RNA sequence: GGUCAUGCUUUUCCACAGCUUUCUUGAACUUCCACUGUUUGCUGAUUAAUACACGGCUCUUGCUAGCUAGGCGCCGUAUGUAGACACCGCGCGCCAUGGGAGCUCAAGAAAGCUGUGGGAGAACAUGGCAC
Numbered sequence: 001g002g003u004c005a006u007g008c009u010u011u012u013c014c015a016c017a018g019c020u021u022u023c024u025u026g027a028a029c030u031u032c033c034a035c036u037g038u039u040u041g042c043u044g045a046u047u048a049a050u051a052c053a054c055g056g057c058u059c060u061u062g063c064u065a066g067c068u069a070g071g072c073g074c075c076g077u078a079u080g081u082a083g084a085c086a087c088c089g090c091g092c093g094c095c096a097u098g099g100g101a102g103c104u105c106a107a108g109a110a111a112g113c114u115g116u117g118g119g120a121g122a123a124c125a126u127g128g129c130a131c
Stems, first nucleotide, its partner, number of pairs: 003128005013118003017114006024107004029102005
Description
Rfam assigns this 131-nucleotide sequence from Citrus unshiu to the family "MIR396 microRNA precursor family". The family's consensus secondary structure was predicted with WAR. On this family, see Jones-Rhoades and Bartel, Mol Cell 2004: "Computational identification of plant microRNAs and their targets, including a stress-induced miRNA". Rfam links the family to the GO terms miRNA-mediated post-transcriptional gene silencing and RISC complex. Lineage of the source: Eukaryota > Viridiplantae > Pentapetalae > Rutaceae > Citrus.